[Rfam]
RNA sequence: AAGGCGGUAUCGGAUCUCGAACCGCACUUGGAGUCAGGUGCCUUUAAUACCGUAACAGUUGACGGAAGGCAAUGCGUAUUCUGCUCUGAGCCGCUUGGACCGAGACAGAAGG
Numbered sequence: 001a002a003g004g005c006g007g008u009a010u011c012g013g014a015u016c017u018c019g020a021a022c023c024g025c026a027c028u029u030g031g032a033g034u035c036a037g038g039u040g041c042c043u044u045u046a047a048u049a050c051c052g053u054a055a056c057a058g059u060u061g062a063c064g065g066a067a068g069g070c071a072a073u074g075c076g077u078a079u080u081c082u083g084c085u086c087u088g089a090g091c092c093g094c095u096u097g098g099a100c101c102g103a104g105a106c107a108g109a110a111g112g
Stems, first nucleotide, its partner, number of pairs: 001029003004025005010020002081108003084104003088100001091098002
Shown here is a 112-nucleotide RNA sequence from Paenibacillus beijingensis, a member of the family "pan motif". By type it is a cis-regulatory element. NCBI's taxonomy places the organism under Bacteria, Bacillota, Caryophanales, Paenibacillaceae, Paenibacillus. It scores 47 bits against the family's covariance model. The family's consensus secondary structure is taken from published work.